[Rfam]
RNA: Actinobacteria sRNA Ms_IGR-5
RNA sequence: ACACGGGAAAGGAGGUGGUCCGAAGAAUGUUUUCUUCCAGGACGCGUGAGGUGGCUGCUCGCUAGUAGCCCAGCAUGACGGGAGGGGGCGAUCCUCCCGGGCUGCUGGCAAUCCACCGCAGUCACCCGACCCGCAGGCGCACCGGGCACGUCCCCCGGUCCGGUCCCUCCACAGGGGCCACGCCUGCGGGUCGUUCCCG
Numbered sequence: 001a002c003a004c005g006g007g008a009a010a011g012g013a014g015g016u017g018g019u020c021c022g023a024a025g026a027a028u029g030u031u032u033u034c035u036u037c038c039a040g041g042a043c044g045c046g047u048g049a050g051g052u053g054g055c056u057g058c059u060c061g062c063u064a065g066u067a068g069c070c071c072a073g074c075a076u077g078a079c080g081g082g083a084g085g086g087g088g089c090g091a092u093c094c095u096c097c098c099g100g101g102c103u104g105c106u107g108g109c110a111a112u113c114c115a116c117c118g119c120a121g122u123c124a125c126c127c128g129a130c131c132c133g134c135a136g137g138c139g140c141a142c143c144g145g146g147c148a149c150g151u152c153c154c155c156c157g158g159u160c161c162g163g164u165c166c167c168u169c170c171a172c173a174g175g176g177g178c179c180a181c182g183c184c185u186g187c188g189g190g191u192c193g194u195u196c197c198c199g
Stems, first nucleotide, its partner, number of pairs: 014059006061109006068102004073097001075095001127193013141159006